The record is a 31-nucleotide RNA from Chionoecetes opilio, which matches "Iron response element II" in Rfam. By type it is a cis-regulatory element. For this family Rfam cites "A cytosolic protein binds to structural elements within the iron regulatory region of the transferrin receptor mRNA" (Koeller et al., Proc Natl Acad Sci U S A, 1989). Gene Ontology term of the family: response to iron ion. The family's consensus secondary structure is taken from published work. It scores 30 bits against the family's covariance model. The family has 30 seed sequences and 5,197 matches in Rfam 15.1. Lineage of the source: Eukaryota > Opisthokonta > Protostomia > Eubrachyura > Chionoecetes.

RNA sequence: CAUUCUUCUGGAACAGUGUUUUCAAAGAUUU
Numbered sequence: 001c002a003u004u005c006u007u008c009u010g011g012a013a014c015a016g017u018g019u020u021u022u023c024a025a026a027g028a029u030u031u
Base pairs, nucleotide, nucleotide: 002030004028005027006026007025009024010023011022012021013020014018